[Rfam]
RNA sequence: GCCACUUGAUCGGGAGAGAGCUGCGCAAAAGAGUGAUUUUGCAGACAGCCGCCGAAGGGGCUAAUACCCAACAAACUCUCAGGCAAAAGGACCGAUCAGCGGGG
Number, nucleotide and partner (000 for none) at each position: 001g000002c000003c000004a000005c000006u099007u098008g097009a096010u095011c094012g093013g092014g000015a000016g000017a000018g000019a000020g049021c048022u047023g046024c000025g000026c000027a000028a000029a000030a000031g000032a000033g000034u000035g000036a000037u000038u000039u000040u000041g000042c000043a000044g000045a000046c023047a022048g021049c020050c000051g084052c083053c082054g080055a079056a000057g000058g078059g077060g076061c000062u000063a000064a000065u070066a000067c000068c000069c000070a065071a000072c000073a000074a000075a000076c060077u059078c058079u055080c054081a000082g053083g052084c051085a000086a000087a000088a000089g000090g000091a000092c013093c012094g011095a010096u009097c008098a007099g006100c000101g000102g000103g000104g000